[Rfam]
Glutamine riboswitch aptamer (glnA leader): a 66-nucleotide RNA. The literature on the family includes a 2015 paper in Cell Rep by Ren et al., "Structural and Dynamic Basis for Low-Affinity, High-Selectivity Binding of L-Glutamine by the Glutamine Riboswitch". Rfam's curators put it in the seed alignment.
RNA sequence: GUCGUUCAUCCGGUGAUUGAUUCACUGGACGCAAGUAAGCCGUUAUUGUUGCUGAAGGAACGGGAA
Numbered sequence: 001g002u003c004g005u006u007c008a009u010c011c012g013g014u015g016a017u018u019g020a021u022u023c024a025c026u027g028g029a030c031g032c033a034a035g036u037a038a039g040c041c042g043u044u045a046u047u048g049u050u051g052c053u054g055a056a057g058g059a060a061c062g063g064g065a066a
Stems, first nucleotide, its partner, number of pairs: 003062005009029008032063001038053003